[Rfam]
RNA sequence: GUCCCGCCCUAGCAGCACGUAAAUAUUGGUGUGUGACACAAAGCUUCAACCCCAAUAUUCUUGUGCUGCUGCAGCGUGGC
Dot-bracket structure: (((.(((..(((((((((...((((((((......................))))))))...))))))))..)))).)))